[Rfam]
RNA sequence: AGUUGCUCAUUCAACUUUUUAUGACGGCGCCGCCAGAGGGCGGACAAUCUGCCUCAUAAGCCUCCGAAUGAUGCCAAAGAAAUGGUGCCUAUCGUCCAACCAAACCGAUAAUUGCCGCUGACGCGACUUUAUCAAGCAUCGGGCGACACGUGGAGUGAGGCACCGCCUG
Numbered sequence: 001a002g003u004u005g006c007u008c009a010u011u012c013a014a015c016u017u018u019u020u021a022u023g024a025c026g027g028c029g030c031c032g033c034c035a036g037a038g039g040g041c042g043g044a045c046a047a048u049c050u051g052c053c054u055c056a057u058a059a060g061c062c063u064c065c066g067a068a069u070g071a072u073g074c075c076a077a078a079g080a081a082a083u084g085g086u087g088c089c090u091a092u093c094g095u096c097c098a099a100c101c102a103a104a105c106c107g108a109u110a111a112u113u114g115c116c117g118c119u120g121a122c123g124c125g126a127c128u129u130u131a132u133c134a135a136g137c138a139u140c141g142g143g144c145g146a147c148a149c150g151u152g153g154a155g156u157g158a159g160g161c162a163c164c165g166c167c168u169g
Base pairs, nucleotide, nucleotide: 005074006073007071008070009069010068011067012066019059020058021057022056023055024054026053027052028051084164085163086162087161088160089159090158093145094144095143096142097141107133108132109131110130111129147157148156149155